RNA sequence: AACGGAGAGAUCUGCGCAAGCAGCUUCUCUCGAUGACCUUCGCGGUCAUCACUCUGGCAUGUGAGAAAUUCGGAGUAUGUCCCAAAGGUCUAGGUUCGCCCUGGCCGCCCGAUCACUCAGCGUACUGCCCUCAGGUGGUGCUGCCGGGUGCUGAGGGUCCUGCCGGUGACGGCACGAGGUGAAUUCACCUCCGCAGUUGGCAUCAGAAACGCAGGGCGCUGGCUGUCCCUGCUCACGCGGGGCUCCAGUCCAGUCGUUCCUCUGGGAGAGUCACUGCCGGGAUUGCUUGCGGGAGCAAGCUGAAGCGCGAUGGGUGGCGUGUCGCCGACCUCCUCGUCAGGGGAGGAAGGCCUCAUCAUUCAAUUCCGAUCAUUCUCUGGGCGGU
Numbered sequence: 001a002a003c004g005g006a007g008a009g010a011u012c013u014g015c016g017c018a019a020g021c022a023g024c025u026u027c028u029c030u031c032g033a034u035g036a037c038c039u040u041c042g043c044g045g046u047c048a049u050c051a052c053u054c055u056g057g058c059a060u061g062u063g064a065g066a067a068a069u070u071c072g073g074a075g076u077a078u079g080u081c082c083c084a085a086a087g088g089u090c091u092a093g094g095u096u097c098g099c100c101c102u103g104g105c106c107g108c109c110c111g112a113u114c115a116c117u118c119a120g121c122g123u124a125c126u127g128c129c130c131u132c133a134g135g136u137g138g139u140g141c142u143g144c145c146g147g148g149u150g151c152u153g154a155g156g157g158u159c160c161u162g163c164c165g166g167u168g169a170c171g172g173c174a175c176g177a178g179g180u181g182a183a184u185u186c187a188c189c190u191c192c193g194c195a196g197u198u199g200g201c202a203u204c205a206g207a208a209a210c211g212c213a214g215g216g217c218g219c220u221g222g223c224u225g226u227c228c229c230u231g232c233u234c235a236c237g238c239g240g241g242g243c244u245c246c247a248g249u250c251c252a253g254u255c256g257u258u259c260c261u262c263u264g265g266g267a268g269a270g271u272c273a274c275u276g277c278c279g280g281g282a283u284u285g286c287u288u289g290c291g292g293g294a295g296c297a298a299g300c301u302g303a304a305g306c307g308c309g310a311u312g313g314g315u316g317g318c319g320u321g322u323c324g325c326c327g328a329c330c331u332c333c334u335c336g337u338c339a340g341g342g343g344a345g346g347a348a349g350g351c352c353u354c355a356u357c358a359u360u361c362a363a364u365u366c367c368g369a370u371c372a373u374u375c376u377c378u379g380g381g382c383g384g385u
Stems, first nucleotide, its partner, number of pairs: 001385001003383002007378001009376001013317001017313001020062003023058001033049006071368005080282004161174005176191005194276003198273004213261003319356003324351002
A member of the RNA family "Nuclear RNase P" from Gnomoniopsis smithogilvyi, 385 nucleotides long.
A reference for the family is Frank and Pace (1998), "Ribonuclease P: unity and diversity in a tRNA processing ribozyme", Annu Rev Biochem.
The match comes from Rfam's covariance-model search (35 bits).
Its family is annotated with tRNA processing, ribonuclease P activity and ribonuclease P complex in the Gene Ontology.
It is annotated as a ribozyme.
Ribonuclease P (RNase P) is a ubiquitous endoribonuclease, found in archaea, bacteria and eukarya as well as chloroplasts and mitochondria. Its best characterised activity is the generation of mature 5'-ends of tRNAs by cleaving the 5'-leader elements of precursor-tRNAs. Cellular RNase Ps are ribonucleoproteins. RNA from bacterial RNase Ps retains its catalytic activity in the absence of the protein subunit, i.e. it is a ribozyme. Isolated eukaryotic and archaeal RNase P RNA has not been shown to retain its catalytic function, but is still essential for the catalytic activity of the holoenzyme. Although the archaeal and eukaryotic holoenzyme s have a much greater protein content than the bacterial ones, the RNA cores from all the three lineages are homologous -- helices corresponding to P1, P2, P3, P4, and P10/11 are common to all cellular RNase P RNAs. Yet, there is considerable sequence variation, particularly among the eukaryotic RNAs.